The family of this 96-nucleotide RNA from Triticum aestivum is "Small nucleolar RNA snoR26". The match comes from Rfam's covariance-model search (78 bits). Taxonomically the source falls in Triticum (Eukaryota, Viridiplantae, Liliopsida, Triticeae). The literature on the family includes a 2001 paper in RNA by Brown et al., "Multiple snoRNA gene clusters from Arabidopsis".
RNA sequence: GGAGCAUCCGUGAUGUUACAUCCACUUAACUCAUCCUUGCACUUUGAGUCUCGGCAGUGAAGAAAAACAUUGGGGAAUUUGUAGUCUGAGAUGCUC
Numbered sequence: 001g002g003a004g005c006a007u008c009c010g011u012g013a014u015g016u017u018a019c020a021u022c023c024a025c026u027u028a029a030c031u032c033a034u035c036c037u038u039g040c041a042c043u044u045u046g047a048g049u050c051u052c053g054g055c056a057g058u059g060a061a062g063a064a065a066a067a068c069a070u071u072g073g074g075g076a077a078u079u080u081g082u083a084g085u086c087u088g089a090g091a092u093g094c095u096c
Stems, first nucleotide, its partner, number of pairs: 002096007